[Rfam]
RNA: c-di-GMP-I riboswitch aptamer
RNA sequence: AGCAAACAAUGCCACCCUUGCCGCAAGGCAAGUUCGGAAAGCCUACAGAUCUCCACACAUGAGACGGCUGGGUUGCCUCC
Numbered sequence: 001a002g003c004a005a006a007c008a009a010u011g012c013c014a015c016c017c018u019u020g021c022c023g024c025a026a027g028g029c030a031a032g033u034u035c036g037g038a039a040a041g042c043c044u045a046c047a048g049a050u051c052u053c054c055a056c057a058c059a060u061g062a063g064a065c066g067g068c069u070g071g072g073u074u075g076c077c078u079c080c
Stems, first nucleotide, its partner, number of pairs: 012037002017032006040074004046070003050064002